The family of this 86-nucleotide RNA sequence from Anaerocolumna sedimenticola is "ZMP/ZTP riboswitch aptamer (pfl RNA motif)". A search with the family's covariance model found it, with a score of 68 bits. Lineage of the source: Bacteria > Clostridia > Lachnospirales > Lachnospiraceae > Anaerocolumna.
RNA sequence: UAGAAUUUGUAUGACUGGCGGAAAGUGGGAAUUAACCCACGGGGAGUACAAAAUAAUAAAAACAGCCGACCGCCUGGGCAGCCUAA
Numbered sequence: 001u002a003g004a005a006u007u008u009g010u011a012u013g014a015c016u017g018g019c020g021g022a023a024a025g026u027g028g029g030a031a032u033u034a035a036c037c038c039a040c041g042g043g044g045a046g047u048a049c050a051a052a053a054u055a056a057u058a059a060a061a062a063c064a065g066c067c068g069a070c071c072g073c074c075u076g077g078g079c080a081g082c083c084u085a086a
Base pairs, nucleotide, nucleotide: 004054006052007051008050009049010048011047012046015043016042017074018073019072020071021070026039027038028037029036063081065079066078067077